[Rfam]
Notes
The record is a 126-nucleotide RNA from Jaculus jaculus, which matches "Small Cajal body specific RNA 8" in Rfam. The family's RNA type in Rfam is small Cajal body RNA. A search with the family's covariance model found it, with a score of 108 bits. The literature on the family includes a 2001 paper in EMBO J by Huttenhofer et al., "RNomics: an experimental approach that identifies 201 candidates for novel, small, non-messenger RNAs in mouse". Lineage of the source: Eukaryota > Myomorpha > Dipodidae > Dipodinae > Jaculus. The family has 22 seed sequences and 955 matches in Rfam 15.1.

RNA sequence: UGGGAAGCUAAUGUACAGAUUGGGCUGAAAUACAGCUCUAAUUGUCACCAUACUUCCCUAAACUAUCUUUUGAUGACCAGGAUGAAUUGAGUGAAACCAUAAUGGACAGACUCAGGGCAGACAAUU
Numbered sequence: 001u002g003g004g005a006a007g008c009u010a011a012u013g014u015a016c017a018g019a020u021u022g023g024g025c026u027g028a029a030a031u032a033c034a035g036c037u038c039u040a041a042u043u044g045u046c047a048c049c050a051u052a053c054u055u056c057c058c059u060a061a062a063c064u065a066u067c068u069u070u071u072g073a074u075g076a077c078c079a080g081g082a083u084g085a086a087u088u089g090a091g092u093g094a095a096a097c098c099a100u101a102a103u104g105g106a107c108a109g110a111c112u113c114a115g116g117g118c119a120g121a122c123a124a125u126u
Stems, first nucleotide, its partner, number of pairs: 002058006015045004022038004063120002066117004077105003082100003